A member of the RNA family "Vertebrate telomerase RNA" from Catharus fuscescens, 451 nucleotides long. Taxonomically the source falls in Catharus (Eukaryota, Sauropsida, Sauria, Passeriformes). On this family, see Fragnet et al., J Biol Chem 2005: "Comparative functional study of the viral telomerase RNA based on natural mutations". Rfam describes the family as follows. Telomerase is a ribonucleoprotein reverse transcriptase that synthesises telomeric DNA. Telomerase RNAs differ greatly in sequence and structure between vertebrates, ciliates and yeasts, but they share a 5' pseudoknot structure close to the template sequence. Rfam links the family to the GO terms telomerase catalytic core complex, telomerase activity and telomere maintenance via telomerase. By type it is a non-coding RNA gene. The match comes from Rfam's covariance-model search (139 bits). The family's consensus secondary structure is taken from published work.
[Rfam]
RNA sequence: CCGUGCCGGGGUGGGCAGGCCCUGUGGCCAACUAACCCUAAUGGCGGCCGCGCCCCUCACGCUCUCCCGCUGUUUUACUCGCUGACUUUCAGCGGGCAAAGGGAGCGGCCUAGGGGAAGGGGGUGGGUGGGGGAAAGAGUUCCGGCCUCAAAAAAAGCCAGCGAUGGGGAUCCGCACCCCGGCCCACCCUGGGGUGCCUGUCCCUUCUCCGCCACGGAGAUGCUCCCGCCUUCGCCCCUCGUAGAGGCCGCGGUCGGCAGGCUCAGCGCCGCUGCCGCCGCGAAGAGUUCGUCUCUGUCAGCCUUGGCGGAGGCCGGGAGCACAGGGCCGGCCCGCCCACCCUGGGCAGCCGGGAGACCCCAGCAGAGCAAAAAGGGGCGGCGCUGCCGGGCGCUGAGCAGCCGCAGCUCCCUCAGACGUGGAGUGCGCGGCCGGCGCCGCCCCGACACCC
Numbered sequence: 001c002c003g004u005g006c007c008g009g010g011g012u013g014g015g016c017a018g019g020c021c022c023u024g025u026g027g028c029c030a031a032c033u034a035a036c037c038c039u040a041a042u043g044g045c046g047g048c049c050g051c052g053c054c055c056c057u058c059a060c061g062c063u064c065u066c067c068c069g070c071u072g073u074u075u076u077a078c079u080c081g082c083u084g085a086c087u088u089u090c091a092g093c094g095g096g097c098a099a100a101g102g103g104a105g106c107g108g109c110c111u112a113g114g115g116g117a118a119g120g121g122g123g124u125g126g127g128u129g130g131g132g133g134a135a136a137g138a139g140u141u142c143c144g145g146c147c148u149c150a151a152a153a154a155a156a157g158c159c160a161g162c163g164a165u166g167g168g169g170a171u172c173c174g175c176a177c178c179c180c181g182g183c184c185c186a187c188c189c190u191g192g193g194g195u196g197c198c199u200g201u202c203c204c205u206u207c208u209c210c211g212c213c214a215c216g217g218a219g220a221u222g223c224u225c226c227c228g229c230c231u232u233c234g235c236c237c238c239u240c241g242u243a244g245a246g247g248c249c250g251c252g253g254u255c256g257g258c259a260g261g262c263u264c265a266g267c268g269c270c271g272c273u274g275c276c277g278c279c280g281c282g283a284a285g286a287g288u289u290c291g292u293c294u295c296u297g298u299c300a301g302c303c304u305u306g307g308c309g310g311a312g313g314c315c316g317g318g319a320g321c322a323c324a325g326g327g328c329c330g331g332c333c334c335g336c337c338c339a340c341c342c343u344g345g346g347c348a349g350c351c352g353g354g355a356g357a358c359c360c361c362a363g364c365a366g367a368g369c370a371a372a373a374a375g376g377g378g379c380g381g382c383g384c385u386g387c388c389g390g391g392c393g394c395u396g397a398g399c400a401g402c403c404g405c406a407g408c409u410c411c412c413u414c415a416g417a418c419g420u421g422g423a424g425u426g427c428g429c430g431g432c433c434g435g436c437g438c439c440g441c442c443c444c445g446a447c448a449c450c451c
Stems, first nucleotide, its partner, number of pairs: 005183009015173001017171001020169004052106002055103002066096007081162004086157001087155003189363007222321007231311005249282005255277004260270003284296004376443010402431004409424001411422002